[Rfam]
A member of the RNA family "Actino-pnp RNA" from Amycolatopsis sp. M39, 59 nucleotides long. It scores 66 bits against the family's covariance model. Pairs were carried over by alignment from the consensus structure, which is taken from published work.
RNA sequence: GCCGGUCCUCGGUAGUGGUUCCCGGGCAACGGACCCGGGGGCUUCGAUCGAAGACCGGC
Numbered sequence: 001g002c003c004g005g006u007c008c009u010c011g012g013u014a015g016u017g018g019u020u021c022c023c024g025g026g027c028a029a030c031g032g033a034c035c036c037g038g039g040g041g042c043u044u045c046g047a048u049c050g051a052a053g054a055c056c057g058g059c
Stems, first nucleotide, its partner, number of pairs: 001059007009051005017043010